This 63-nucleotide RNA from Bacillus smithii belongs to the Rfam family "Fluoride riboswitch aptamer (crcB RNA motif)".
Taxonomically the source falls in Bacillus smithii (Bacteria, Bacillati, Bacillota, Bacilli).
[Rfam]
RNA sequence: AGCUGAAUAGGCGAUGGAGUUCGCCGUAUAACCGUCCAUGCGACUAAUGACUCCUACCAGUAA
Numbered sequence: 001a002g003c004u005g006a007a008u009a010g011g012c013g014a015u016g017g018a019g020u021u022c023g024c025c026g027u028a029u030a031a032c033c034g035u036c037c038a039u040g041c042g043a044c045u046a047a048u049g050a051c052u053c054c055u056a057c058c059a060g061u062a063a
Stems, first nucleotide, its partner, number of pairs: 010025004016054006034044003